RNA sequence: AGGUAAUUGAGUAUAUGGGGAUGUUUGCCAGACAUUCAAUGUCCGGGACGUGAGAAAAGCAAAAGGGGGACAAAUUCCCCCUUUUAUAACUAACU
Numbered sequence: 001a002g003g004u005a006a007u008u009g010a011g012u013a014u015a016u017g018g019g020g021a022u023g024u025u026u027g028c029c030a031g032a033c034a035u036u037c038a039a040u041g042u043c044c045g046g047g048a049c050g051u052g053a054g055a056a057a058a059g060c061a062a063a064a065g066g067g068g069g070a071c072a073a074a075u076u077c078c079c080c081c082u083u084u085u086a087u088a089a090c091u092a093a094c095u
Stems, first nucleotide, its partner, number of pairs: 008038001010036003016032001019029002061085010